About this RNA: Rfam assigns this 89-nucleotide RNA from Scleropages formosus to the family "mir-146 microRNA precursor family".
RNA sequence: UUGAGUUUUCAGCUUUGAGAACUGAAUUCCAAGGGUUUUUGGAUCAAGCUUUGCCCGUGGGACUUAGUUCUUAAAACUGGAUGCUCCUG
Numbered sequence: 001u002u003g004a005g006u007u008u009u010c011a012g013c014u015u016u017g018a019g020a021a022c023u024g025a026a027u028u029c030c031a032a033g034g035g036u037u038u039u040u041g042g043a044u045c046a047a048g049c050u051u052u053g054c055c056c057g058u059g060g061g062a063c064u065u066a067g068u069u070c071u072u073a074a075a076a077c078u079g080g081a082u083g084c085u086c087c088u089g
Base pairs, nucleotide, nucleotide: 008080009079011078012077018071019070020069021068022067023066024065025064033056034055035054036053
The organism belongs to Scleropages, within Eukaryota. Rfam links the family to the GO terms miRNA-mediated post-transcriptional gene silencing and RISC complex.